[Rfam]
RNA: BsrG
RNA sequence: UACAAUAGAAUAGGCUCCUCAAGGGUGGUCGGCUCAUCCCCUAAUGAGAGGGGGUGAUGCCAUGACAGUUUAUGAGGCGAUCUCUCUGAUGAUUGCUUUCGGAUCGUUGAUCACGCUGCUGCUGUCGGAAAAGAAAAAGAAAUAGACCGCCCUUGAGCUGACAACUCCGCAGUCUAUUCCACAUAACCUCGAGCCGACCCCAUGAGGGGCAGCUAUUGUACUUGACCGUAGGUGUUCCCGCACCUACGG
Number, nucleotide and partner (000 for none) at each position: 001u220002a219003c218004a217005a216006u000007a214008g213009a000010a000011u211012a000013g195014g194015c193016u192017c191018c157019u156020c155021a154022a153023g152024g151025g150026u000027g147028g000029u145030c000031g000032g000033c000034u057035c056036a055037u000038c053039c052040c051041c050042u049043a000044a000045u000046g000047a000048g000049a042050g041051g040052g039053g038054g000055u036056g035057a034058u000059g000060c000061c000062a000063u000064g126065a125066c124067a123068g122069u121070u000071u000072a000073u000074g000075a000076g000077g000078c091079g090080a000081u000082c000083u000084c000085u000086c000087u000088g000089a000090u079091g078092a000093u000094u000095g000096c000097u000098u000099u000100c000101g000102g117103a000104u115105c000106g000107u000108u000109g000110a000111u000112c000113a000114c000115g104116c000117u102118g000119c000120u000121g069122c068123u067124g066125u065126c064127g000128g000129a000130a000131a000132a000133g000134a000135a000136a000137a000138a000139g000140a000141a000142a000143u000144a000145g029146a000147c027148c000149g000150c025151c024152c023153u022154u021155g020156a019157g018158c000159u000160g000161a000162c000163a000164a000165c000166u000167c000168c000169g179170c000171a000172g000173u000174c000175u000176a000177u000178u000179c169180c000181a000182c000183a000184u000185a000186a000187c000188c000189u000190c000191g017192a016193g015194c014195c013196g000197a000198c209199c208200c207201c000202a000203u000204g000205a000206g000207g200208g199209g198210c000211a011212g000213c008214u007215a000216u005217u004218g003219u002220a001221c000222u000223u000224g000225a000226c249227c248228g247229u246230a245231g244232g243233u242234g241235u240236u000237c000238c000239c000240g235241c234242a233243c232244c231245u230246a229247c228248g227249g226